A member of the RNA family "mir-981 microRNA precursor family" from Galleria mellonella, 80 nucleotides long.
A search with the family's covariance model found it, with a score of 67 bits.
Taxonomically the source falls in Galleria (Eukaryota, Bilateria, Panarthropoda, Pterygota).
Rfam links the family to the GO terms RISC complex and miRNA-mediated post-transcriptional gene silencing.
The family's consensus secondary structure was predicted with RNAalifold.
RNA sequence: CCGCACAUGAUUCGGGUUUCGGGACGAUGUAACCGUGAGAUUAUUUGGUUCGUUGUCGACGAAACCUGCAAAAUGCGCGG
Numbered sequence: 001c002c003g004c005a006c007a008u009g010a011u012u013c014g015g016g017u018u019u020c021g022g023g024a025c026g027a028u029g030u031a032a033c034c035g036u037g038a039g040a041u042u043a044u045u046u047g048g049u050u051c052g053u054u055g056u057c058g059a060c061g062a063a064a065c066c067u068g069c070a071a072a073a074u075g076c077g078c079g080g
Stems, first nucleotide, its partner, number of pairs: 001080004006075001013068009031050004